[Rfam]
RNA: Metazoan signal recognition particle RNA
RNA sequence: ACUGGGACCGGUGGCGUGGUCUUGUAAUCCAGCUACUUUGGAAGUCUAGGCUUUUGGACGGCGUGAGGUUGGGAGUUCUGUCCUCCGUUGCUCUAUGUCGAUCAGGCGUCCGCGCUAAGCAUCGUGUCGAUAUGGUGUUCCUGGGGGAGCCCGGGUCCACCAGGUCGUCUAAGGCGGAGCGAAUCGGCCCAGGCCGGAAACGGAGCAGGCAAAAGCUCCCGCACGGUGCAGUAGUGGGAUAGCGCCUGUGAAUAGAUUGCGGUUGGCAGCCCAUCCAAUACAGUCGAACUCAGUCUUUU
Numbered sequence: 001a002c003u004g005g006g007a008c009c010g011g012u013g014g015c016g017u018g019g020u021c022u023u024g025u026a027a028u029c030c031a032g033c034u035a036c037u038u039u040g041g042a043a044g045u046c047u048a049g050g051c052u053u054u055u056g057g058a059c060g061g062c063g064u065g066a067g068g069u070u071g072g073g074a075g076u077u078c079u080g081u082c083c084u085c086c087g088u089u090g091c092u093c094u095a096u097g098u099c100g101a102u103c104a105g106g107c108g109u110c111c112g113c114g115c116u117a118a119g120c121a122u123c124g125u126g127u128c129g130a131u132a133u134g135g136u137g138u139u140c141c142u143g144g145g146g147g148a149g150c151c152c153g154g155g156u157c158c159a160c161c162a163g164g165u166c167g168u169c170u171a172a173g174g175c176g177g178a179g180c181g182a183a184u185c186g187g188c189c190c191a192g193g194c195c196g197g198a199a200a201c202g203g204a205g206c207a208g209g210c211a212a213a214a215g216c217u218c219c220c221g222c223a224c225g226g227u228g229c230a231g232u233a234g235u236g237g238g239a240u241a242g243c244g245c246c247u248g249u250g251a252a253u254a255g256a257u258u259g260c261g262g263u264u265g266g267c268a269g270c271c272c273a274u275c276c277a278a279u280a281c282a283g284u285c286g287a288a289c290u291c292a293g294u295c296u297u298u299u
Stems, first nucleotide, its partner, number of pairs: 001045003004023007028042003048296005059286004067276002070273004078269005085262004090257001092256005098250001103248007110238002113236005119229009128167004133162005140155006168174002176219005187210003194203003